Shown here is a 66-nucleotide RNA from Pundamilia nyererei, a member of the family "Selenocysteine insertion sequence 1". The organism belongs to Pundamilia, within Eukaryota.

RNA sequence: CGCUGUCUGAUGACGGUGAUGGAAGAAAGCCGUCAAUCGGACGUCCAUCGCCUGAUGCCCGGCGCC
Number, nucleotide and partner (000 for none) at each position: 001c064002g063003c062004u000005g000006u000007c000008u000009g000010a000011u000012g000013a000014c000015g052016g051017u050018g049019a048020u047021g046022g045023a044024a000025g000026a000027a000028a000029g000030c040031c039032g038033u000034c000035a000036a000037u000038c032039g031040g030041a000042c000043g000044u023045c022046c021047a020048u019049c018050g017051c016052c015053u000054g000055a000056u000057g000058c000059c000060c000061g000062g003063c002064g001065c000066c000
Its family is annotated with selenocysteine incorporation in the Gene Ontology.